[Rfam]
RNA sequence: GGCGGGGGAAGCUCAUCAGCGGGGCCACGUGCUGAGUGCUCGUCACUCCCCGGCCCCUGGGAAGGUCUGAGACUGGGGCCUCCCGCGGCCCUAACCGGGCCCUCCCCGAGCGGGGAGGUGAGUUCCCAGAGAGCAGGGCUCCACGCGUGGGCAGACUGGGCAGGAGAGGCCCCGAGUGGGCGGAUGCCUCCCUCGCCGGAGCUUGGAACAGACUCACGGCCGGCUAGAGCGAGUUCAAUGGCUGAGGUGAGGCACCUCGCGGGCCUCAUAACCCAAUUCAGACUACUCUCCCCCGCC
Number, nucleotide and partner (000 for none) at each position: 001g297002g296003c295004g294005g000006g000007g291008g290009a289010a000011g000012c246013u245014c244015a243016u000017c241018a000019g000020c000021g057022g056023g055024g054025c000026c000027a000028c000029g000030u000031g000032c000033u000034g048035a047036g046037u045038g044039c000040u000041c000042g000043u000044c038045a037046c036047u035048c034049c000050c000051c000052g000053g000054c024055c023056c022057c021058u000059g000060g000061g000062a000063a000064g000065g000066u000067c281068u280069g279070a278071g277072a000073c000074u000075g000076g000077g221078g220079c219080c218081u000082c000083c000084c000085g000086c000087g101088g100089c099090c098091c097092u000093a000094a000095c000096c000097g091098g090099g089100c088101c087102c117103u116104c115105c114106c113107c112108g000109a000110g000111c000112g107113g106114g105115g104116a103117g102118g217119u216120g215121a214122g213123u212124u211125c000126c000127c000128a000129g000130a000131g000132a000133g000134c000135a000136g000137g000138g202139c201140u200141c000142c000143a000144c000145g000146c000147g000148u000149g000150g000151g000152c000153a000154g000155a000156c000157u000158g000159g000160g000161c000162a000163g000164g000165a000166g000167a000168g000169g000170c000171c000172c000173c000174g000175a000176g000177u000178g000179g000180g000181c000182g000183g000184a000185u000186g000187c000188c000189u000190c000191c000192c000193u000194c000195g000196c000197c000198g000199g000200a140201g139202c138203u000204u000205g000206g000207a000208a000209c000210a000211g124212a123213c122214u121215c120216a119217c118218g080219g079220c078221c077222g000223g000224c000225u000226a000227g000228a000229g000230c000231g000232a000233g000234u000235u000236c000237a000238a000239u000240g000241g017242c000243u015244g014245a013246g012247g269248u268249g267250a266251g265252g264253c263254a000255c000256c000257u000258c000259g000260c000261g000262g000263g253264c252265c251266u250267c249268a248269u247270a000271a000272c000273c000274c000275a000276a000277u071278u070279c069280a068281g067282a000283c000284u000285a000286c000287u000288c000289u009290c008291c007292c000293c000294c004295g003296c002297c001
A member of the RNA family "Nuclear RNase P" from Neotoma lepida, 297 nucleotides long. Rfam classes the family as a ribozyme. From the family's description: Ribonuclease P (RNase P) is a ubiquitous endoribonuclease, found in archaea, bacteria and eukarya as well as chloroplasts and mitochondria. Gene Ontology terms of the family: ribonuclease P complex, ribonuclease P activity and tRNA processing. Taxonomically the source falls in Neotoma (Eukaryota, Bilateria, Teleostomi, Sarcopterygii).